[Rfam]
RNA sequence: CGGAGAGGACGACCUCUCGCAUCCAAAUCGAGACGACCGGGACGGCCCGG
Numbered sequence: 001c002g003g004a005g006a007g008g009a010c011g012a013c014c015u016c017u018c019g020c021a022u023c024c025a026a027a028u029c030g031a032g033a034c035g036a037c038c039g040g041g042a043c044g045g046c047c048c049g050g
Base pairs, nucleotide, nucleotide: 003018004017005016006015007014008013037050038049039048040047041046
A member of the RNA family "Guanidine-II riboswitch aptamer (mini-ykkC)" from Pseudaminobacter soli, 50 nucleotides long. The family's consensus secondary structure is taken from published work. Rfam's curators write: Simpler in structure and has fewer highly conserved nucleotide positions than the ykkC-yxkD leader. Despite this each of its two stem-loop structures directly bind free guanidine. Its family is annotated with regulation of gene expression in the Gene Ontology.